Description:
The record is a 76-nucleotide RNA from Candidatus Cenarchaeum symbiosum, which matches "tRNA" in Rfam. Pairs were carried over by alignment from the consensus structure, which is taken from published work. Transfer RNA (tRNA) molecules are approximately 80 nucleotides in length. Their secondary structure includes four short double-helical elements and three loops (D, anti-codon, and T loops). Further hydrogen bonds mediate the characteristic L-shaped molecular structure. tRNAs have two regions of fundamental functional importance: the anti-codon, which is responsible for specific mRNA codon recognition, and the 3' end, to which the tRNAs corresponding amino acid is attached (by aminoacyl-tRNA synthetases). tRNAs cope with the degeneracy of the genetic code in two manners: having more than one tRNA (with a specific anti-codon) for a particular amino acid; and 'wobble' base-pairing, i.e. permitting non-standard base-pairing at the 3rd anti-codon position.

RNA sequence: GCUCCUGUGGUGUAGUCCGGCCAAGCAUACUGCCCUCUCAAGGCAGUGAUCCCGGGUUCAAAUCCCGGCGGGAGCA
Numbered sequence: 001g002c003u004c005c006u007g008u009g010g011u012g013u014a015g016u017c018c019g020g021c022c023a024a025g026c027a028u029a030c031u032g033c034c035c036u037c038u039c040a041a042g043g044c045a046g047u048g049a050u051c052c053c054g055g056g057u058u059c060a061a062a063u064c065c066c067g068g069c070g071g072g073a074g075c076a
Base pairs, nucleotide, nucleotide: 001075002074003073004072005071006070007069010028011027012026013025030046031045032044033043034042052068053067054066055065056064